Record summary
A member of the RNA family "Small nucleolar RNA Z43" from Phtheirospermum japonicum, 88 nucleotides long. Lineage of the source: Eukaryota > Mesangiospermae > lamiids > Orobanchaceae > Phtheirospermum. The literature on the family includes a 2003 paper in Nucleic Acids Res by Chen et al., "The high diversity of snoRNAs in plants: identification and comparative study of 120 snoRNA genes from Oryza sativa". Rfam 15.1 lists 859 matches to the family in 240 species. Rfam links the family to the GO terms nucleolus and RNA processing.
[Rfam]
RNA sequence: GGACGAGGAUGAAGAGAAUAUUGGUCUCGUUCGUCAUAAUGGUGUCUGUUAUGAUACCUUGCCGACAAUACUGAUAUAAACAGAGUCC
Numbered sequence: 001g002g003a004c005g006a007g008g009a010u011g012a013a014g015a016g017a018a019u020a021u022u023g024g025u026c027u028c029g030u031u032c033g034u035c036a037u038a039a040u041g042g043u044g045u046c047u048g049u050u051a052u053g054a055u056a057c058c059u060u061g062c063c064g065a066c067a068a069u070a071c072u073g074a075u076a077u078a079a080a081c082a083g084a085g086u087c088c
Base pairs, nucleotide, nucleotide: 001088002087003086004085044060